[Rfam]
RNA sequence: AUCGAACUUCGGGGCGGGGCGAAAUUCCCCACCGGCGGUAAUCCAGACAGCAAUACCCCCCUGGAAAGCCCGCGAGCGCCUGACGAUACUUUUAUUGCUCAGGGUCAGCAGAUCUGGUGAGACUCCAGAGCCGACGGUUACAGUCCGGAUGAAAGAAGAUCGAC
Dot-bracket structure: ..(((.((((......(((.......))).[[((((((.............................[[))))..((..............................))...(((((.......)))))]])).(((.....]]))).......)))).)))..

Shown here is a 164-nucleotide RNA from Gynuella sunshinyii, a member of the family "FMN riboswitch aptamer (RFN element)".
Pairs were carried over by alignment from the consensus structure, which is taken from published work.
NCBI's taxonomy places the organism under Bacteria, Pseudomonadota, Gammaproteobacteria, Oceanospirillales, Gynuella sunshinyii.